RNA: tRNA
Organism: Saccharomonospora sp. CUA-673
RNA sequence: GGGCCCAUAGCUCAGGUGGUUAGAGCGCAUCGCUGAUAACGAUGAGGUCGGAGGUUCAAGUCCUCCUGGGCCCA
Dot-bracket structure: (((((((..((((.........)))).(((((.......))))).....(((((.......)))))))))))).